RNA sequence: GAUGGCGAUGCGGGAGAGAUCCGAUCCACCCCAAAAGGGAGGAAAGGACGCCGAAGGAGCAACCGCCCCGGAAACUCUCAGGCCACCGGACCGCAUCGUCAAG
Numbered sequence: 001g002a003u004g005g006c007g008a009u010g011c012g013g014g015a016g017a018g019a020u021c022c023g024a025u026c027c028a029c030c031c032c033a034a035a036a037g038g039g040a041g042g043a044a045a046g047g048a049c050g051c052c053g054a055a056g057g058a059g060c061a062a063c064c065g066c067c068c069c070g071g072a073a074a075c076u077c078u079c080a081g082g083c084c085a086c087c088g089g090a091c092c093g094c095a096u097c098g099u100c101a102a103g
Stems, first nucleotide, its partner, number of pairs: 006098008020048003050083003053079002057077003063071002